[Rfam]
RNA sequence: UUGUUAGAAUGCGCCCCGUCAUUGGGGAGUAGCCGCUCUUCACCGCGAAGAGGCUUGCGUCAACACACUUGGUCCAUCGGACCAUGGCGCAGGCAGCUCCUGGCCUGGCAAGACCUUUGACCACGAAGCCUCCGUUUUGGCCGGGGAUGCGUCGUGGUCAAUCGUCUCUGUACACCGGCCUUGGACAUU
Numbered sequence: 001u002u003g004u005u006a007g008a009a010u011g012c013g014c015c016c017c018g019u020c021a022u023u024g025g026g027g028a029g030u031a032g033c034c035g036c037u038c039u040u041c042a043c044c045g046c047g048a049a050g051a052g053g054c055u056u057g058c059g060u061c062a063a064c065a066c067a068c069u070u071g072g073u074c075c076a077u078c079g080g081a082c083c084a085u086g087g088c089g090c091a092g093g094c095a096g097c098u099c100c101u102g103g104c105c106u107g108g109c110a111a112g113a114c115c116u117u118u119g120a121c122c123a124c125g126a127a128g129c130c131u132c133c134g135u136u137u138u139g140g141c142c143g144g145g146g147a148u149g150c151g152u153c154g155u156g157g158u159c160a161a162u163c164g165u166c167u168c169u170g171u172a173c174a175c176c177g178g179c180c181u182u183g184g185a186c187a188u189u
Stems, first nucleotide, its partner, number of pairs: 036052003053094010070084005